The record is a 75-nucleotide sequence from Streptomyces paludis, which matches "ASpks TB sRNA" in Rfam. A reference for the family is Arnvig and Young (2009), "Identification of small RNAs in Mycobacterium tuberculosis", Mol Microbiol. Lineage of the source: Bacteria > Actinomycetes > Kitasatosporales > Streptomycetaceae > Streptomyces.
[Rfam]
RNA sequence: CUUGACCGAGCCGAGCCGGAGUGGCCGGUCGGCGGGGCGGUCCUGGCCGUACGUGGCGAGCAGCGCCUGCGCUUC
Numbered sequence: 001c002u003u004g005a006c007c008g009a010g011c012c013g014a015g016c017c018g019g020a021g022u023g024g025c026c027g028g029u030c031g032g033c034g035g036g037g038c039g040g041u042c043c044u045g046g047c048c049g050u051a052c053g054u055g056g057c058g059a060g061c062a063g064c065g066c067c068u069g070c071g072c073u074u075c
Base pairs, nucleotide, nucleotide: 015025016024017023032070033069038065039064043060044059047056048055049054